[Rfam]
RNA sequence: UGCUGUGUAUGACGACCUGUUCUUAAACCUGAGGGCCGAACAGGUCUGAUGUUCUUCAGCA
Numbered sequence: 001u002g003c004u005g006u007g008u009a010u011g012a013c014g015a016c017c018u019g020u021u022c023u024u025a026a027a028c029c030u031g032a033g034g035g036c037c038g039a040a041c042a043g044g045u046c047u048g049a050u051g052u053u054c055u056u057c058a059g060c061a
Stems, first nucleotide, its partner, number of pairs: 001061005014046009028035002
About this RNA:
This 61-nucleotide RNA from Branchiostoma lanceolatum belongs to the Rfam family "Selenocysteine insertion sequence 1". From the family's description: The incorporation of selenocysteine into a protein sequence is directed by an in-frame UGA codon (usually a stop codon) within the coding region of the mRNA. Selenoprotein mRNAs contain a conserved secondary structure in the 3' UTR that is required for the distinction of UGA stop from UGA selenocysteine. The selenocysteine insertion sequence (SECIS) is around 60 nt in length and adopts a hairpin structure which is sufficiently well-defined and conserved to act as a computational screen for selenoprotein genes. Rfam classes the family as a cis-regulatory element. The base pairs follow the family's consensus structure, which is taken from published work. Gene Ontology term of the family: selenocysteine incorporation.